[Rfam]
RNA sequence: UGGACGCGUCGCGACUGGCGUUCGGAUGGGUCACCAUCGGGGAGCGACUGAGACGGAAAGCGGCCGUACGCCUGGGCCGCGACG
Numbered sequence: 001u002g003g004a005c006g007c008g009u010c011g012c013g014a015c016u017g018g019c020g021u022u023c024g025g026a027u028g029g030g031u032c033a034c035c036a037u038c039g040g041g042g043a044g045c046g047a048c049u050g051a052g053a054c055g056g057a058a059a060g061c062g063g064c065c066g067u068a069c070g071c072c073u074g075g076g077c078c079g080c081g082a083c084g
Stems, first nucleotide, its partner, number of pairs: 008048005015041002017072005026037004061079005